The family of this 49-nucleotide RNA sequence from Kryptolebias marmoratus is "Guanidine-II riboswitch aptamer (mini-ykkC)". The base pairs follow the family's consensus structure, which is taken from published work. Taxonomically the source falls in Kryptolebias (Eukaryota, Eurypterygia, Ctenosquamata, Acanthomorphata). Simpler in structure and has fewer highly conserved nucleotide positions than the ykkC-yxkD leader. Despite this each of its two stem-loop structures directly bind free guanidine.

RNA sequence: ACUGCAGGACGGCCUGCAGGGACAUCAUGGAGACUGCAGGACGGCCUGC
Numbered sequence: 001a002c003u004g005c006a007g008g009a010c011g012g013c014c015u016g017c018a019g020g021g022a023c024a025u026c027a028u029g030g031a032g033a034c035u036g037c038a039g040g041a042c043g044g045c046c047u048g049c
Base pairs, nucleotide, nucleotide: 002019003018004017005016006015007014008013036049037048038047039046040045
Dot-bracket structure: .(((((((....)))))))................(((((....)))))